RNA: U7 small nuclear RNA
Organism: Rattus norvegicus
RNA sequence: AAGUGAACACAGCUCUUUUAGAAUUUUUCCCAGCAUGAUUUUCUGAGUUUGGUUGUAAAAUCCAA
Numbered sequence: 001a002a003g004u005g006a007a008c009a010c011a012g013c014u015c016u017u018u019u020a021g022a023a024u025u026u027u028u029c030c031c032a033g034c035a036u037g038a039u040u041u042u043c044u045g046a047g048u049u050u051g052g053u054u055g056u057a058a059a060a061u062c063c064a065a
Stems, first nucleotide, its partner, number of pairs: 037062006044055003